[Rfam]
RNA sequence: CCAGGUAAGCCGCCGUACCGGACACCGUGCCGGGACGGCUCGGGGUGAAGCCAUGCCCGAAGGGGCACGGCCGGGCACUCUCCCGCCCGAACCCGACAGCUCACCUCGCAGGCGUAGGAGAGGAACCUC
Number, nucleotide and partner (000 for none) at each position: 001c000002c000003a000004g000005g000006u000007a000008a000009g000010c000011c114012g113013c112014c111015g000016u000017a000018c000019c027020g026021g000022a000023c000024a000025c000026c020027g019028u000029g109030c108031c000032g106033g105034g104035a000036c042037g041038g000039c000040u000041c037042g036043g094044g093045g092046u000047g000048a000049a000050g000051c070052c069053a000054u067055g066056c065057c000058c000059g000060a000061a000062g000063g000064g000065g056066c055067a054068c000069g052070g051071c000072c000073g088074g087075g086076c085077a000078c000079u000080c000081u000082c000083c000084c000085g076086c075087c074088c073089g000090a000091a000092c045093c044094c043095g000096a000097c000098a000099g000100c000101u000102c000103a000104c034105c033106u032107c000108g030109c029110a000111g014112g013113c012114g011115u000116a000117g000118g000119a000120g000121a000122g000123g000124a000125a000126c000127c000128u000129c000

c-di-AMP riboswitch aptamer (ydaO/yuaA leader): a 129-nucleotide sequence from Streptomyces pseudogriseolus.
About the family: This family represents a conserved RNA structure found upstream of the ydaO and yuaA genes in Bacillus subtilis and related genes in other bacteria.
The organism belongs to Streptomyces pseudogriseolus, within Bacteria.
The match comes from Rfam's covariance-model search (51 bits).